[Rfam]
RNA sequence: GUUCAAGGUAGAGGCGCAAGAACCAUCAGUAUAUGUUUUUAGGGUGAUACCAGAGAGAAACAUAAAAAGGGGUUGUUGCCGAAGUGGAGUCAGUAAUAUCAAGACUCUCCGCUGGGGUUAUCUUCGAAUAGGGAUAACACUGCCAUAGUCUAUAUUGUUGUUAAACUAUGGAGCGCUACUGUAGGG
Numbered sequence: 001g002u003u004c005a006a007g008g009u010a011g012a013g014g015c016g017c018a019a020g021a022a023c024c025a026u027c028a029g030u031a032u033a034u035g036u037u038u039u040u041a042g043g044g045u046g047a048u049a050c051c052a053g054a055g056a057g058a059a060a061c062a063u064a065a066a067a068a069g070g071g072g073u074u075g076u077u078g079c080c081g082a083a084g085u086g087g088a089g090u091c092a093g094u095a096a097u098a099u100c101a102a103g104a105c106u107c108u109c110c111g112c113u114g115g116g117g118u119u120a121u122c123u124u125c126g127a128a129u130a131g132g133g134a135u136a137a138c139a140c141u142g143c144c145a146u147a148g149u150c151u152a153u154a155u156u157g158u159u160g161u162u163a164a165a166c167u168a169u170g171g172a173g174c175g176c177u178a179c180u181g182u183a184g185g186g
Stems, first nucleotide, its partner, number of pairs: 007180005016079004021074004032064008083113007094102001114141002117138008143171007